[Rfam]
RNA sequence: UUUCCAGUCAGGCUUCGGCCUAAAAUCCAGCUGUUAGCUGGACUUAGGCCAAGCCUGACUGAAAA
Numbered sequence: 001u002u003u004c005c006a007g008u009c010a011g012g013c014u015u016c017g018g019c020c021u022a023a024a025a026u027c028c029a030g031c032u033g034u035u036a037g038c039u040g041g042a043c044u045u046a047g048g049c050c051a052a053g054c055c056u057g058a059c060u061g062a063a064a065a
Base pairs, nucleotide, nucleotide: 007059008058009057011055012054013053014052017050018049019048020047021046022045023044027041028040029039030038031037